Rfam assigns this 72-nucleotide RNA sequence from Alligator sinensis to the family "Mammalian CPEB3 ribozyme". Taxonomically the source falls in Alligator (Eukaryota, Craniata, Gnathostomata, Sarcopterygii). The match comes from Rfam's covariance-model search (40 bits).
[Rfam]
RNA sequence: UUGCAAGUUCAAGGUCAAAACAAGUGCUCACGUUGAGGCCUGUCAGAUUCCAAUGAAUCUGCAAAUUCUGCU
Numbered sequence: 001u002u003g004c005a006a007g008u009u010c011a012a013g014g015u016c017a018a019a020a021c022a023a024g025u026g027c028u029c030a031c032g033u034u035g036a037g038g039c040c041u042g043u044c045a046g047a048u049u050c051c052a053a054u055g056a057a058u059c060u061g062c063a064a065a066u067u068c069u070g071c072u
Base pairs, nucleotide, nucleotide: 013040014039015038016037019072021070022069023066025035026034044061045060046059047058048057049056050055